[Rfam]
RNA sequence: GCCUUCUGUAAGUUUUGCAUAGUUGCACUACAAGAACUGAGUUGUGCAAAUCUAUGCAAAACUGAUGGCGGUC
Numbered sequence: 001g002c003c004u005u006c007u008g009u010a011a012g013u014u015u016u017g018c019a020u021a022g023u024u025g026c027a028c029u030a031c032a033a034g035a036a037c038u039g040a041g042u043u044g045u046g047c048a049a050a051u052c053u054a055u056g057c058a059a060a061a062c063u064g065a066u067g068g069c070g071g072u073c
Stems, first nucleotide, its partner, number of pairs: 003071002006068004011063009023049006030042002
This 73-nucleotide RNA sequence from Leptobrachium leishanense belongs to the Rfam family "mir-19 microRNA precursor family". For this family Rfam cites "Identification of novel genes coding for small expressed RNAs" (Lagos-Quintana et al., Science, 2001). Lineage of the source: Eukaryota > Metazoa > Tetrapoda > Megophryidae > Leptobrachium. Its family is annotated with miRNA-mediated post-transcriptional gene silencing and RISC complex in the Gene Ontology.